Record summary: The family of this 98-nucleotide RNA is "Plastid-rps12 3UTR RNA". It is annotated as a cis-regulatory element. The sequence is in the family's curated seed alignment. The literature on the family includes a 2023 paper in Plant Commun by Richter et al., "Retrograde signaling in plants: A critical review focusing on the GUN pathway and beyond". Rfam's curators write: Plastid rpl20 is a non-coding RNA (ncRNA) recognised in plastids. The family's consensus secondary structure was predicted with LocARNA.
RNA sequence: GGUUUCUGUUGGUGCAAAUCCAAUCACCUCAAUUUGAGAUGAAAAUCAAUUCUCCAUUGGUAGCAAAAAAGUUAUCCAUUAAGCGGGGAAAUGAUAUU
Numbered sequence: 001g002g003u004u005u006c007u008g009u010u011g012g013u014g015c016a017a018a019u020c021c022a023a024u025c026a027c028c029u030c031a032a033u034u035u036g037a038g039a040u041g042a043a044a045a046u047c048a049a050u051u052c053u054c055c056a057u058u059g060g061u062a063g064c065a066a067a068a069a070a071g072u073u074a075u076c077c078a079u080u081a082a083g084c085g086g087g088g089a090a091a092u093g094a095u096a097u098u
Stems, first nucleotide, its partner, number of pairs: 009023004053087003056079002059076006
Dot-bracket structure: ........((((.......)))).............................(((((.((((((......)))))).)).....)))...........